[Rfam]
The family of this 135-nucleotide RNA sequence from Thermodesulfobium narugense is "Molybdenum/Tungsten riboswitch aptamer (Moco RNA motif)". The match comes from Rfam's covariance-model search (78 bits). Its family is annotated with regulation of gene expression, tungstate binding and molybdenum ion binding in the Gene Ontology.

RNA sequence: CGCGCCAGGGGUCUCCGAGCUAUUUUGCCUAAAACGUUCUGUCAUGGCAGAUAGCCUGAGUUUUAAACUCACGGGGUAUGUUUGGAAACGAGCAUGCCUUCACAUUUUUUGAAAAGGAGGAAAACGUGAAAAGGU
Numbered sequence: 001c002g003c004g005c006c007a008g009g010g011g012u013c014u015c016c017g018a019g020c021u022a023u024u025u026u027g028c029c030u031a032a033a034a035c036g037u038u039c040u041g042u043c044a045u046g047g048c049a050g051a052u053a054g055c056c057u058g059a060g061u062u063u064u065a066a067a068c069u070c071a072c073g074g075g076g077u078a079u080g081u082u083u084g085g086a087a088a089c090g091a092g093c094a095u096g097c098c099u100u101c102a103c104a105u106u107u108u109u110u111g112a113a114a115a116g117g118a119g120g121a122a123a124a125c126g127u128g129a130a131a132a133g134g135u
Stems, first nucleotide, its partner, number of pairs: 006126001012120005019055007027048003034042003057071005074099011100112002